Shown here is a 147-nucleotide sequence from Bacillus sp. SJS, a member of the family "c-di-AMP riboswitch aptamer (ydaO/yuaA leader)". For this family Rfam cites "New RNA motifs suggest an expanded scope for riboswitches in bacterial genetic control" (Barrick et al., Proc Natl Acad Sci U S A, 2004). Its family is annotated with regulation of gene expression and cyclic-di-AMP binding in the Gene Ontology. This family represents a conserved RNA structure found upstream of the ydaO and yuaA genes in Bacillus subtilis and related genes in other bacteria. The organism belongs to Bacillus, within Bacteria.

RNA sequence: CAUAUGUGAGCGCUUAAUCCCAUAAAGGGAGCGGGGGAACCAAAACACAGUGCAGUGGCACUUGGGGUGAAUCCUUUUAAUUGAAGGCAGGACAUUUCUCUUCGUCCGAAUCCGACAGCUAACCUCGUAAGCGAGAAGAGACACUUC
Numbered sequence: 001c002a003u004a005u006g007u008g009a010g011c012g013c014u015u016a017a018u019c020c021c022a023u024a025a026a027g028g029g030a031g032c033g034g035g036g037g038a039a040c041c042a043a044a045a046c047a048c049a050g051u052g053c054a055g056u057g058g059c060a061c062u063u064g065g066g067g068u069g070a071a072u073c074c075u076u077u078u079a080a081u082u083g084a085a086g087g088c089a090g091g092a093c094a095u096u097u098c099u100c101u102u103c104g105u106c107c108g109a110a111u112c113c114g115a116c117a118g119c120u121a122a123c124c125u126c127g128u129a130a131g132c133g134a135g136a137a138g139a140g141a142c143a144c145u146u147c
Stems, first nucleotide, its partner, number of pairs: 011133004018030003031128006041064002065113003073087004090107004